Rfam assigns this 47-nucleotide RNA sequence from Eucalyptus grandis to the family "Plastid-rpl16 group II-D1 intron".

RNA sequence: AAGAGGCUUGAACCAAUAAAGAAUUAGAAGAUUGACUCAAGAACAAA
Number, nucleotide and partner (000 for none) at each position: 001a000002a000003g000004a000005g000006g000007c041008u040009u000010g038011a037012a000013c000014c034015a033016a032017u031018a000019a000020a000021g000022a000023a000024u000025u000026a000027g000028a000029a000030g000031a017032u016033u015034g014035a000036c000037u011038c010039a000040a008041g007042a000043a000044c000045a000046a000047a000
Pairs were carried over by alignment from the consensus structure, which was predicted with LocARNA. Gene Ontology term of the family: Group II intron splicing.